[Rfam]
Shown here is a 72-nucleotide RNA from Rattus norvegicus, a member of the family "mir-17 microRNA precursor family". For this family Rfam cites "Identification of novel genes coding for small expressed RNAs" (Lagos-Quintana et al., Science, 2001). The base pairs follow the family's consensus structure, which was predicted with RNAalifold. Taxonomically the source falls in Rattus (Eukaryota, Bilateria, Deuterostomia, Chordata). It is one of the family's seed sequences.
RNA sequence: GUAGUGCCAAAGUGCUCAUAGUGCAGGUAGGUUUUGCUGCACUCUACUGCAGUGUGAGCACUUCUGGUACUC
Numbered sequence: 001g002u003a004g005u006g007c008c009a010a011a012g013u014g015c016u017c018a019u020a021g022u023g024c025a026g027g028u029a030g031g032u033u034u035u036g037c038u039g040c041a042c043u044c045u046a047c048u049g050c051a052g053u054g055u056g057a058g059c060a061c062u063u064c065u066g067g068u069a070c071u072c
Base pairs, nucleotide, nucleotide: 003071004070006068007067008066010063011062012061013060014059015058016057017056018055019054020053022051023050024049026048027047028046029045030044